[Rfam]
Background: Shown here is a 185-nucleotide RNA sequence from Triticum aestivum, a member of the family "Small nucleolar RNA snoR97". It scores 56 bits against the family's covariance model.
RNA sequence: UAUCUCUGAUUUGCGGAAGAGGCCCAAUAACUCACAGAUUGUGUGUUGUGAUUAGCUUUGUCUCUUGUUCCUACUCCCUCCGUUCCGAUUUACUCGUCGUGGUUUUAGAAUUUGAACUAAAACCACGACGAGUAAAUCGGAACGGAGGGAGUAUGAGAUAUGAGUUAAAUAACGGCACGAGAUAU
Numbered sequence: 001u002a003u004c005u006c007u008g009a010u011u012u013g014c015g016g017a018a019g020a021g022g023c024c025c026a027a028u029a030a031c032u033c034a035c036a037g038a039u040u041g042u043g044u045g046u047u048g049u050g051a052u053u054a055g056c057u058u059u060g061u062c063u064c065u066u067g068u069u070c071c072u073a074c075u076c077c078c079u080c081c082g083u084u085c086c087g088a089u090u091u092a093c094u095c096g097u098c099g100u101g102g103u104u105u106u107a108g109a110a111u112u113u114g115a116a117c118u119a120a121a122a123c124c125a126c127g128a129c130g131a132g133u134a135a136a137u138c139g140g141a142a143c144g145g146a147g148g149g150a151g152u153a154u155g156a157g158a159u160a161u162g163a164g165u166u167a168a169a170u171a172a173c174g175g176c177a178c179g180a181g182a183u184a185u
Base pairs, nucleotide, nucleotide: 042179043178044177045176046175047174048173054166055165056164057163058162061158062157063156064155
Record summary:
NCBI's taxonomy places the organism under Eukaryota, Viridiplantae, Embryophyta, Mesangiospermae, Triticum. A reference for the family is Marker et al. (2002), "Experimental RNomics: identification of 140 candidates for small non-messenger RNAs in the plant Arabidopsis thaliana", Curr Biol.